[Rfam]
RNA sequence: UAGAACUGUUAUUGCGAUAGGUGGAAUGAUAGGGCAACGCCUUGAAACGCCUACAUUAAUACUCCGAAUAGCGUUUAAUAAAGUAAAUUAUUAAGGGUUAUAAGCUCGGUGAAGUCGGCUGAGAGUACACCCUAACAAGUAAUGUUGAGGAAUAGCGAACUAGAGGUAGUCGAGUGUAUGAUAGGUCGGGUGUCUAUAAA
Numbered sequence: 001u002a003g004a005a006c007u008g009u010u011a012u013u014g015c016g017a018u019a020g021g022u023g024g025a026a027u028g029a030u031a032g033g034g035c036a037a038c039g040c041c042u043u044g045a046a047a048c049g050c051c052u053a054c055a056u057u058a059a060u061a062c063u064c065c066g067a068a069u070a071g072c073g074u075u076u077a078a079u080a081a082a083g084u085a086a087a088u089u090a091u092u093a094a095g096g097g098u099u100a101u102a103a104g105c106u107c108g109g110u111g112a113a114g115u116c117g118g119c120u121g122a123g124a125g126u127a128c129a130c131c132c133u134a135a136c137a138a139g140u141a142a143u144g145u146u147g148a149g150g151a152a153u154a155g156c157g158a159a160c161u162a163g164a165g166g167u168a169g170u171c172g173a174g175u176g177u178a179u180g181a182u183a184g185g186u187c188g189g190g191u192g193u194c195u196a197u198a199a200a
Base pairs, nucleotide, nucleotide: 018053019052020051021050022049023048031043032042033041034040054192055191056190057189064109065108066107067106068101069100070099071098072097074095075094076093077092078091079090080089081088116188117187118186119185120184125179126178127177128176129175130174131150132149133148138146139145156172157171159170160169161168162167
This 200-nucleotide RNA sequence from Clostridium sp. DL-VIII belongs to the Rfam family "Group II catalytic intron D1-D4-5". The match comes from Rfam's covariance-model search (176 bits). Pairs were carried over by alignment from the consensus structure. Rfam's curators write: Group II introns are found in rRNA, tRNA and mRNA of organelles in fungi, plants and protists, and also in mRNA in bacteria. Its family is annotated with Group II intron splicing in the Gene Ontology. The organism belongs to Clostridium, within Bacteria.